This 74-nucleotide RNA from Apium graveolens belongs to the Rfam family "Plastid-ycf2 5UTR RNA". The family has 204 seed sequences and 3,521 matches in Rfam 15.1. Rfam classes the family as a cis-regulatory element.
RNA sequence: GUGCAUUCUAUAGGAAUUCAACCUACGAAUUCAUAUAUUAUGAGUUGAGCGCUUUAACCAUUCAGCCAUGGAUG
Number, nucleotide and partner (000 for none) at each position: 001g000002u000003g000004c074005a073006u072007u071008c070009u000010a000011u025012a024013g023014g022015a000016a000017u000018u000019c000020a000021a000022c014023c013024u012025a011026c000027g000028a000029a000030u000031u000032c000033a000034u000035a000036u000037a000038u000039u000040a069041u068042g067043a000044g066045u065046u064047g063048a062049g061050c000051g059052c000053u000054u000055u000056a000057a000058c000059c051060a000061u049062u048063c047064a046065g045066c044067c042068a041069u040070g008071g007072a006073u005074g004

About this RNA
It scores 71 bits against the family's covariance model. A reference for the family is Richter et al. (2023), "Retrograde signaling in plants: A critical review focusing on the GUN pathway and beyond", Plant Commun. Rfam describes the family as follows. Plastid ycf2 is a non-coding RNA (ncRNA) recognised in plastids. It was found in the prime untranslated region (5UTR) of ycf2 genes, it presents a tRNA-like motif which suggests it can be involved in mRNA maturation, particularly involved in defining the precise 5' end of the transcript. The source organism's lineage runs through Eukaryota, Embryophyta, Magnoliopsida, Pentapetalae and Apium.